[Rfam]
RNA: miR-430 microRNA precursor family
Organism: Echeneis naucrates
RNA sequence: AAUGUUACCUUAACUUGAGCACUGACUUGGUUGUUGAUUUCAGUAAGUGCUACUUGUUGGGGCAGUGCUG
Dot-bracket structure: ...(((.((((.((..(((((((.(((..............))).)))))).)..)).)))).)))....